[Rfam]
RNA: tRNA
Organism: Chanos chanos
RNA sequence: GGCCUCAUGGCCUAAUGGAUAAGGCGUCUGACUUCGGAUCAGAAGAUUGCAGGUUCGAGUCCUGCUGGGGUCG
Numbered sequence: 001g002g003c004c005u006c007a008u009g010g011c012c013u014a015a016u017g018g019a020u021a022a023g024g025c026g027u028c029u030g031a032c033u034u035c036g037g038a039u040c041a042g043a044a045g046a047u048u049g050c051a052g053g054u055u056c057g058a059g060u061c062c063u064g065c066u067g068g069g070g071u072c073g
Stems, first nucleotide, its partner, number of pairs: 001072007010025004027043005049065005